[Rfam]
The family of this 106-nucleotide RNA sequence from Microvirga thermotolerans is "EcpR1". About the family: Perviously named SmelC291, SmrC10, or Sra33. According to its overproduction phenotype it was renamed Elongated Cell Phenotype RNA1. Induced by stress,EcpR1 negatively regulates cell cycle master regulatory genes dnaA and gcrA at post-transcriptional level by base pairing between its strongly conserved GC-rich loop and the target mRNAs. It's regulation is hfq-independent but requires RNase E to regulate dnaA.
RNA sequence: AUGCCCUACGGAUGCUCAGGUCCGCCGCAUCUCCUGGGACUUCGUAGGCUCGGCCAGCUGGAGGCGGGACGUUGCCUCCUCAACACCGUCGCCAGCUGGCCACCUC
Dot-bracket structure: ..(.((((((....((((((............))))))....)))))).).((((((((((..............................)))))))))).....
Gene Ontology terms of the family: negative regulation of cell cycle, mRNA binding and regulation of translation in response to stress. The source organism's lineage runs through Bacteria, Pseudomonadati, Alphaproteobacteria, Methylobacteriaceae and Microvirga.